[Rfam]
RNA sequence: UCUGGUCCUCGGUAGUGGCUCUCGGGUGUUCUACCCCCGCGGGCCUCGAUCGAAGACCGGC
Numbered sequence: 001u002c003u004g005g006u007c008c009u010c011g012g013u014a015g016u017g018g019c020u021c022u023c024g025g026g027u028g029u030u031c032u033a034c035c036c037c038c039g040c041g042g043g044c045c046u047c048g049a050u051c052g053a054a055g056a057c058c059g060g061c
Base pairs, nucleotide, nucleotide: 002060003059004058005057006056007055009053010052011051012050013049017045018044019043020042021041023039024038025037026036028034029033
Dot-bracket structure: .((((((.(((((...(((((.((((.((...)).)))).)))))...))))).)))))).